[Rfam]
RNA: U7 small nuclear RNA
Organism: Gorilla gorilla
RNA sequence: AGGUUGUUUGUUAGUUUUUAGAAUUUGUCUAGUAGGUUUUCUGAUUUUCAGUAGAAAACGCCCCC
Dot-bracket structure: ..................................(((((((((.(....).))))))..)))...